[Rfam]
RNA sequence: CCAUGCAUACAACGGGUUUCGCAGUCUAACGAGCUCUAUUUUAAAUCAGAUAGUUCGUUGUCGACGAAACCUGCAUUUUGCAAUGG
Dot-bracket structure: ((((((......(((((((((.........(((((................)))))........)))))))))......))).)))

The record is an 86-nucleotide sequence from Megaselia scalaris, which matches "mir-981 microRNA precursor family" in Rfam. Pairs were carried over by alignment from the consensus structure, which was predicted with RNAalifold.